[Rfam]
RNA sequence: AGCGAAGUAAAGAUUAGCACUCUUUACACAUAGCCGCCAUAGUUUUAAUGGAUGUAGCCGGAAUACAGGAUGACCGCUCCGUAAGCCAUUAUGUAAAUCUCACAG
Numbered sequence: 001a002g003c004g005a006a007g008u009a010a011a012g013a014u015u016a017g018c019a020c021u022c023u024u025u026a027c028a029c030a031u032a033g034c035c036g037c038c039a040u041a042g043u044u045u046u047a048a049u050g051g052a053u054g055u056a057g058c059c060g061g062a063a064u065a066c067a068g069g070a071u072g073a074c075c076g077c078u079c080c081g082u083a084a085g086c087c088a089u090u091a092u093g094u095a096a097a098u099c100u101c102a103c104a105g
Stems, first nucleotide, its partner, number of pairs: 002077001007027007040102001041100002043097002046091006059081004064076001068075002
Dot-bracket structure: .[....(((((((.......)))))))............(((((.((((((.......((((.(...((....)))]))))....))))))....)).)).)...